[Rfam]
The family of this 69-nucleotide sequence from Erinaceus europaeus is "Small nucleolar RNA SNORD82". Rfam 15.1 lists 649 matches to the family in 590 species. Taxonomically the source falls in Erinaceus (Eukaryota, Craniata, Vertebrata, Eutheria). snoRNA U82 or Z25 is found in both humans and mice. Rfam's curators put it in the seed alignment.
RNA sequence: AGCACAAAUGAUGAACAACAAAGGGACUUAAUACUGAAUCCUGAUGUUACAUGCAAUGUUCUGAUGUGU
Numbered sequence: 001a002g003c004a005c006a007a008a009u010g011a012u013g014a015a016c017a018a019c020a021a022a023g024g025g026a027c028u029u030a031a032u033a034c035u036g037a038a039u040c041c042u043g044a045u046g047u048u049a050c051a052u053g054c055a056a057u058g059u060u061c062u063g064a065u066g067u068g069u
Stems, first nucleotide, its partner, number of pairs: 002069005